[Rfam]
RNA sequence: UCACUAAGCCGUCUGGUGGAUGGCUCGGCUCAAGCGCCGACGAAGGACGCGGUAAGCGGCGAUAUGCCUAGGCUAGGUGCAUACAACCGCCGAACCUAGGGUCUCCGAAUGGGAUUCCCGCCUUUGGGCGCUCCGUAAGGAGUGGGAACCCCCCGAACGGAAACAUCUUAGUAGGGGGAGGAAGAGAAAUCAAUUGAGAUCUCCUGAGUAGGGGCGACCGAAAGGGAGAAAGCCCAAACCAAAUCCGGUCAUGAUGAAUGGCCGGAGAUGUGGUGUUUUGCCCUAUGUCUGGCGCAAAGCAAGUCGGCCGUCAUAUACUAGUCGAACUCCUCUGGAAUGAGGGAUCAUAGAGGGUGACAGUCCCGUAGACGAAAGUAUAUGGGCUGAUGACAUAGGGCGGAGUACUAUCCUCUGGUUUGAGGGUAGGAAGAUGGGGGUCACUCGCCUCCAAGGCUAAAUACGUCUUGAGACCGAUAGCGAACUAAGUACCGUGAGGGAAAGCUGAAAAGCACUCCGGGAAUGAGGGUGAAAAGAUCCUGAAACCAGGCGGUUACAAAC
Numbered sequence: 001u002c003a004c005u006a007a008g009c010c011g012u013c014u015g016g017u018g019g020a021u022g023g024c025u026c027g028g029c030u031c032a033a034g035c036g037c038c039g040a041c042g043a044a045g046g047a048c049g050c051g052g053u054a055a056g057c058g059g060c061g062a063u064a065u066g067c068c069u070a071g072g073c074u075a076g077g078u079g080c081a082u083a084c085a086a087c088c089g090c091c092g093a094a095c096c097u098a099g100g101g102u103c104u105c106c107g108a109a110u111g112g113g114a115u116u117c118c119c120g121c122c123u124u125u126g127g128g129c130g131c132u133c134c135g136u137a138a139g140g141a142g143u144g145g146g147a148a149c150c151c152c153c154c155g156a157a158c159g160g161a162a163a164c165a166u167c168u169u170a171g172u173a174g175g176g177g178g179a180g181g182a183a184g185a186g187a188a189a190u191c192a193a194u195u196g197a198g199a200u201c202u203c204c205u206g207a208g209u210a211g212g213g214g215c216g217a218c219c220g221a222a223a224g225g226g227a228g229a230a231a232g233c234c235c236a237a238a239c240c241a242a243a244u245c246c247g248g249u250c251a252u253g254a255u256g257a258a259u260g261g262c263c264g265g266a267g268a269u270g271u272g273g274u275g276u277u278u279u280g281c282c283c284u285a286u287g288u289c290u291g292g293c294g295c296a297a298a299g300c301a302a303g304u305c306g307g308c309c310g311u312c313a314u315a316u317a318c319u320a321g322u323c324g325a326a327c328u329c330c331u332c333u334g335g336a337a338u339g340a341g342g343g344a345u346c347a348u349a350g351a352g353g354g355u356g357a358c359a360g361u362c363c364c365g366u367a368g369a370c371g372a373a374a375g376u377a378u379a380u381g382g383g384c385u386g387a388u389g390a391c392a393u394a395g396g397g398c399g400g401a402g403u404a405c406u407a408u409c410c411u412c413u414g415g416u417u418u419g420a421g422g423g424u425a426g427g428a429a430g431a432u433g434g435g436g437g438u439c440a441c442u443c444g445c446c447u448c449c450a451a452g453g454c455u456a457a458a459u460a461c462g463u464c465u466u467g468a469g470a471c472c473g474a475u476a477g478c479g480a481a482c483u484a485a486g487u488a489c490c491g492u493g494a495g496g497g498a499a500a501g502c503u504g505a506a507a508a509g510c511a512c513u514c515c516g517g518g519a520a521u522g523a524g525g526g527u528g529a530a531a532a533g534a535u536c537c538u539g540a541a542a543c544c545a546g547g548c549g550g551u552u553a554c555a556a557a558c
Stems, first nucleotide, its partner, number of pairs: 007552010022537001023502002027472002029469006035462002045106003048061003067100006076088003111119003131142004149180001150178005160167002190197002201228005211219002231455004239273003249261004284394004305386004321370003327343001329342004346350001352364003405426007433449005489496002
RNA: Archaeal large subunit ribosomal RNA, nucleotides 10 to 567